The family of this 112-nucleotide RNA from Papaver somniferum is "mir-172 microRNA precursor family".
On this family, see Jones-Rhoades and Bartel, Mol Cell 2004: "Computational Identification of Plant MicroRNAs and Their Targets, Including a Stress-Induced miRNA".
Its family is annotated with RISC complex and miRNA-mediated post-transcriptional gene silencing in the Gene Ontology.
Rfam describes the family as follows. mir-172 has been experimentally verified in Arabidopsis thaliana. This family is thought to target mRNAs coding for APETALA2-like transcription factors.
NCBI's taxonomy places the organism under Eukaryota, Embryophyta, Tracheophyta, Mesangiospermae, Papaver.
RNA sequence: GUGUUUGCAGAUGCAGUAUCUUCAAGAUUCACAAAUGAAGUCAGGGAUUUCCAUUGGAGAUCGCUCUGGUUCAAUAUUAUGAGAAUCUUGAUGAUGCUGCAUCAGCGAUUAA
Numbered sequence: 001g002u003g004u005u006u007g008c009a010g011a012u013g014c015a016g017u018a019u020c021u022u023c024a025a026g027a028u029u030c031a032c033a034a035a036u037g038a039a040g041u042c043a044g045g046g047a048u049u050u051c052c053a054u055u056g057g058a059g060a061u062c063g064c065u066c067u068g069g070u071u072c073a074a075u076a077u078u079a080u081g082a083g084a085a086u087c088u089u090g091a092u093g094a095u096g097c098u099g100c101a102u103c104a105g106c107g108a109u110u111a112a
Stems, first nucleotide, its partner, number of pairs: 010103011022091009032081002